[Rfam]
RNA sequence: ACCGUCCUUCUCUUGGGGGAGGCGCUGUUUAAGGAACGUCUAGUGAAAGCAGCGCUGCUAACGCCGCCAGCAACAACACGCUCCCCUACUGUGCCACCACGGUAGAGAGAGCAAUUUUUGGAAGC
Numbered sequence: 001a002c003c004g005u006c007c008u009u010c011u012c013u014u015g016g017g018g019g020a021g022g023c024g025c026u027g028u029u030u031a032a033g034g035a036a037c038g039u040c041u042a043g044u045g046a047a048a049g050c051a052g053c054g055c056u057g058c059u060a061a062c063g064c065c066g067c068c069a070g071c072a073a074c075a076a077c078a079c080g081c082u083c084c085c086c087u088a089c090u091g092u093g094c095c096a097c098c099a100c101g102g103u104a105g106a107g108a109g110a111g112c113a114a115u116u117u118u119u120g121g122a123a124g125c
Stems, first nucleotide, its partner, number of pairs: 005019005021056002024053007036044002080112004085107001088103006
RNA: U4atac minor spliceosomal RNA